The record is a 72-nucleotide RNA from Ovis aries, which matches "tRNA" in Rfam. A search with the family's covariance model found it, with a score of 47 bits.
[Rfam]
RNA sequence: UCCCUACUAGCUUAGAUGGUAAAGCAUCUGACUGCAGUGCAGGAGACCUGGGUUCGAUCCCUGGGUUGGGAA
Numbered sequence: 001u002c003c004c005u006a007c008u009a010g011c012u013u014a015g016a017u018g019g020u021a022a023a024g025c026a027u028c029u030g031a032c033u034g035c036a037g038u039g040c041a042g043g044a045g046a047c048c049u050g051g052g053u054u055c056g057a058u059c060c061c062u063g064g065g066u067u068g069g070g071a072a
Base pairs, nucleotide, nucleotide: 001071002070003069004068006066007065010025011024012023013022027043028042029041030040048064049063050062051061052060
Dot-bracket structure: ((((.((..((((........)))).((((.........))))....(((((.......))))))).)))).
Its family is annotated with triplet codon-amino acid adaptor activity in the Gene Ontology.